[Rfam]
The record is a 105-nucleotide RNA sequence from Sutcliffiella cohnii, which matches "SAM riboswitch aptamer (S box leader)" in Rfam. Lineage of the source: Bacteria > Bacillati > Bacillota > Bacillaceae > Sutcliffiella. A search with the family's covariance model found it, with a score of 93 bits. The base pairs follow the family's consensus structure, which is taken from published work.

RNA sequence: UACUUAUCAAGAGAGGUAGAGGGACUGGCCCGAUGAUACCUCAGCAACAGGUUCCUUUUGAACACUGUGCUAAAUCCUACAAGUUUUUCACUUGGAAGAUAAGUU
Numbered sequence: 001u002a003c004u005u006a007u008c009a010a011g012a013g014a015g016g017u018a019g020a021g022g023g024a025c026u027g028g029c030c031c032g033a034u035g036a037u038a039c040c041u042c043a044g045c046a047a048c049a050g051g052u053u054c055c056u057u058u059u060g061a062a063c064a065c066u067g068u069g070c071u072a073a074a075u076c077c078u079a080c081a082a083g084u085u086u087u088u089c090a091c092u093u094g095g096a097a098g099a100u101a102a103g104u105u
Base pairs, nucleotide, nucleotide: 002104003103004102005101006100007099008098013042014041015040016039017038021031022030023029027077028076043071044070045069046068048067049066050063052061053060075097080094081093082092083091084090